RNA: ZMP/ZTP riboswitch aptamer (pfl RNA motif)
RNA sequence: CGCUGUCCGCGUGACUGGCGCAGGGAGAUGGAUCACCAUCGGGGAGCGCGGACCAACCCGACCGCCGCGCGCCUGGGCAAUUCCU
Dot-bracket structure: ....((((((((..(([[[[[......((((....))))..))..))))))))..........(((..]]]]]..))).......